The record is a 57-nucleotide RNA sequence from Rhodococcus maanshanensis, which matches "F6 TB sRNA" in Rfam. The literature on the family includes a 2009 paper in Mol Microbiol by Arnvig and Young, "Identification of small RNAs in Mycobacterium tuberculosis". Rfam 15.1 lists 310 matches to the family in 304 species.

RNA sequence: CGUGUAGUCCCGCGUUGCAGCCUGACCCCCGACCCGGUUGCAGCGCGGGACUACCCA
Dot-bracket structure: .(.((.((((((((((((((((.............)))))))))))))))).)).).